[Rfam]
RNA sequence: UAGUAGUGUGACAUGCCGUUUGAUGUUGAACUCUGAUUUUAUAAAUAUAAUUAAAUUGAAUUUGGGAAACGGGGUGUUACAUUAUG
Numbered sequence: 001u002a003g004u005a006g007u008g009u010g011a012c013a014u015g016c017c018g019u020u021u022g023a024u025g026u027u028g029a030a031c032u033c034u035g036a037u038u039u040u041a042u043a044a045a046u047a048u049a050a051u052u053a054a055a056u057u058g059a060a061u062u063u064g065g066g067a068a069a070c071g072g073g074g075u076g077u078u079a080c081a082u083u084a085u086g
Base pairs, nucleotide, nucleotide: 003085004084005083006082007081008080009079010078011077012076013075014074016072017071018070019069020068
The record is an 86-nucleotide RNA sequence from Medicago truncatula, which matches "MIR2617 microRNA precursor family" in Rfam. A search with the family's covariance model found it, with a score of 49 bits. Rfam 15.1 lists 1,174 matches to the family in 2 species. The source organism's lineage runs through Eukaryota, Streptophyta, Magnoliopsida, fabids and Medicago. The base pairs follow the family's consensus structure, which was predicted with RNAalifold.